[Rfam]
Nucleotides: 095
Base pairs, nucleotide, nucleotide: 012037013036017032018031019030020029021028022027040089041088042087043086045085046084047083048080049079050078055074056073057072058071
Number, partner (000 for none) and nucleotide at each position: 001000a002000u003000c004000a005000c006000a007000u008000u009000u010000c011000g012037g013036c014000a015000a016000a017032c018031c019030a020029u021028u022027c023000g024000a025000a026000a027022g028021g029020g030019u031018g032017g033000g034000a035000c036013g037012c038000a039000a040089a041088g042087c043086u044000u045085c046084c047083g048080g049079u050078c051000u052000g053000u054000c055074g056073g057072c058071a059000c060000u061000g062000g063000g064000u065000u066000a067000c068000c069000a070000a071058u072057g073056c074055c075000u076000a077000u078050g079049a080048u081000a082000g083047c084046g085045g086043g087042g088041u089040u090000g091000c092000c093000a094000c095000u
This 95-nucleotide RNA sequence from Vibrio paucivorans belongs to the Rfam family "c-di-GMP-I riboswitch aptamer". Pairs were carried over by alignment from the consensus structure, which is taken from published work.